[Rfam]
RNA: SAM-III riboswitch aptamer (SMK box)
RNA sequence: UAGAGUUAUAAGUCAAAAUUCCCGAUAGGCUCCAUGUAGAUGGAGGUGCCUUGUAACCGAGGAACGGAAGAUUAUCGGUCAACUCCGUUCGUUUAAUUUUUAGGGGGAAUAUUCUCGUG
Number, nucleotide and partner (000 for none) at each position: 001u000002a000003g000004a000005g000006u000007u000008a000009u000010a000011a000012g000013u000014c000015a000016a000017a000018a000019u109020u108021c107022c106023c105024g000025a000026u000027a051028g050029g049030c000031u044032c043033c042034a041035u040036g000037u000038a000039g000040a035041u034042g033043g032044a031045g000046g000047u000048g000049c029050c028051u027052u000053g000054u000055a000056a000057c104058c103059g000060a000061g000062g000063a000064a000065c000066g000067g000068a000069a000070g000071a000072u000073u000074a000075u000076c000077g000078g000079u000080c000081a000082a000083c000084u000085c000086c000087g000088u000089u000090c000091g000092u000093u000094u000095a000096a000097u000098u000099u000100u000101u000102a000103g058104g057105g023106g022107g021108a020109a019110u000111a000112u000113u000114c000115u000116c000117g000118u000119g000